[Rfam]
RNA sequence: CUGCUUUUAUGGGCUUAGGGUCUGAAAAACUCAGAAAGCCAUGUGUUAUCUAUCAGCUUCUUCUCUGCAAAAACUGAGCUUGGAGUUAAAUAAUAGCACAAAAUCU
Number, nucleotide and partner (000 for none) at each position: 001c000002u000003g000004c000005u000006u000007u000008u000009a000010u000011g000012g000013g000014c000015u000016u000017a000018g000019g000020g000021u000022c000023u000024g000025a000026a000027a000028a000029a000030c000031u000032c000033a000034g000035a000036a000037a000038g000039c000040c000041a000042u100043g099044u098045g097046u096047u095048a094049u000050c000051u000052a000053u000054c000055a087056g086057c085058u084059u083060c082061u000062u000063c078064u077065c076066u000067g000068c000069a000070a000071a000072a000073a000074c000075u000076g065077a064078g063079c000080u000081u000082g060083g059084a058085g057086u056087u055088a000089a000090a000091u000092a000093a000094u048095a047096g046097c045098a044099c043100a042101a000102a000103a000104u000105c000106u000
This 106-nucleotide RNA from Cuscuta australis belongs to the Rfam family "Small nucleolar RNA snoR97". The organism belongs to Cuscuta sect. Cleistogrammica, within Eukaryota. For this family Rfam cites "Experimental RNomics: identification of 140 candidates for small non-messenger RNAs in the plant Arabidopsis thaliana" (Marker et al., Curr Biol, 2002). The family's RNA type in Rfam is H/ACA-box small nucleolar RNA. Gene Ontology terms of the family: RNA processing and nucleolus.